[Rfam]
The record is a 73-nucleotide sequence from Microcebus murinus, which matches "tRNA" in Rfam. The family is grouped with related families in Rfam's "tRNA clan". A search with the family's covariance model found it, with a score of 58 bits. The family's consensus secondary structure is taken from published work.

RNA sequence: GGCCGCGUGGCCUAAUGGAUAAGGCGUCUGAUUCCGGAUCAGAAGAUUGAGGAUUCGAGUCCCUUCGUGGUCG
Dot-bracket structure: (((((((..((((........)))).(((((.......))))).....((((.........))))))))))).